[Rfam]
RNA sequence: AUAAAAUAUCUUCUCCGAUUUACGGAUUUCUAAGGUGAAAGCUAUGAAACUGUAAACGUCGGGUGCAGUUGGAAACGGUUGCGCCUCCCAGUGCGGAAAGGAGUGCUACAGGUGGUUAA
Number, nucleotide and partner (000 for none) at each position: 001a000002u000003a113004a000005a000006a000007u000008a000009u000010c000011u105012u000013c103014u102015c101016c100017g000018a000019u056020u055021u054022a053023c052024g051025g050026a000027u049028u048029u047030c046031u000032a000033a000034g043035g042036u041037g000038a000039a000040a000041g036042c035043u034044a000045u000046g030047a029048a028049a027050c025051u024052g023053u022054a021055a020056a019057c000058g000059u000060c000061g086062g085063g084064u083065g082066c081067a080068g079069u078070u077071g076072g000073a000074a000075a000076c071077g070078g069079u068080u067081g066082c065083g064084c063085c062086u061087c096088c095089c000090a000091g000092u000093g000094c000095g088096g087097a000098a000099a000100g016101g015102a014103g013104u000105g011106c000107u000108a000109c000110a000111g000112g000113u003114g000115g000116u000117u000118a000119a000